[Rfam]
RNA sequence: AGGUGAGGUGGAGGUCGCGAACUUUAUUAGUAGGCAUAAGUAGAGUGUAGAACUUGUUUAGGUGUGCCGAAAGGAAUUUUCGCCGAAAUGAUAUUUGUUACUACGCAGAUAUUGUUGGGGCUAUACUUAAUAGGUAUAGAACUGUCAUAGCUAAAGCUAUGUUGAGCUACUGACUUU
Dot-bracket structure: ......(((((.....(((((..((.......((((((........................))))))......))..)))))...((((((((((((......))))))))))))((..(((((((.....)))))))..))..((((((....)))))).....)))))......
Numbered sequence: 001a002g003g004u005g006a007g008g009u010g011g012a013g014g015u016c017g018c019g020a021a022c023u024u025u026a027u028u029a030g031u032a033g034g035c036a037u038a039a040g041u042a043g044a045g046u047g048u049a050g051a052a053c054u055u056g057u058u059u060a061g062g063u064g065u066g067c068c069g070a071a072a073g074g075a076a077u078u079u080u081c082g083c084c085g086a087a088a089u090g091a092u093a094u095u096u097g098u099u100a101c102u103a104c105g106c107a108g109a110u111a112u113u114g115u116u117g118g119g120g121c122u123a124u125a126c127u128u129a130a131u132a133g134g135u136a137u138a139g140a141a142c143u144g145u146c147a148u149a150g151c152u153a154a155a156g157c158u159a160u161g162u163u164g165a166g167c168u169a170c171u172g173a174c175u176u177u
Stems, first nucleotide, its partner, number of pairs: 007171005017083005024076002033068006087116012117143002121139007146161006

Notes:
The family of this 177-nucleotide RNA sequence from Gemella sp. zg-570 is "Lysine riboswitch aptamer". The family's consensus secondary structure is taken from published work. The organism belongs to Gemella, within Bacteria. A search with the family's covariance model found it, with a score of 106 bits.